RNA: Epstein-Barr virus stable intronic sequence RNA 2
Organism: Cylicocyclus nassatus
RNA sequence: CGCCGAAUUUGGAAGAGUCCCGCGCGGAUUCCCUGCAGGCAGGGAAUCCGCGCGGGACUCUUCCAAAUUCGGCG
Numbered sequence: 001c002g003c004c005g006a007a008u009u010u011g012g013a014a015g016a017g018u019c020c021c022g023c024g025c026g027g028a029u030u031c032c033c034u035g036c037a038g039g040c041a042g043g044g045a046a047u048c049c050g051c052g053c054g055g056g057a058c059u060c061u062u063c064c065a066a067a068u069u070c071g072g073c074g
Stems, first nucleotide, its partner, number of pairs: 001074007009066002014061015031044005